RNA sequence: CCUUUGGAGUGUGACACCAGACGUUAGUAGAACGCUGAAUUUUCAACGAAUUUUCAACUUCGAGAACGCACACGGGGAAAAAGGAA
Numbered sequence: 001c002c003u004u005u006g007g008a009g010u011g012u013g014a015c016a017c018c019a020g021a022c023g024u025u026a027g028u029a030g031a032a033c034g035c036u037g038a039a040u041u042u043u044c045a046a047c048g049a050a051u052u053u054u055c056a057a058c059u060u061c062g063a064g065a066a067c068g069c070a071c072a073c074g075g076g077g078a079a080a081a082a083g084g085a086a
Stems, first nucleotide, its partner, number of pairs: 001084005009073005022068003030061003
Dot-bracket structure: (((((...(((((........(((.....(((..........................)))....))))))))......)))))..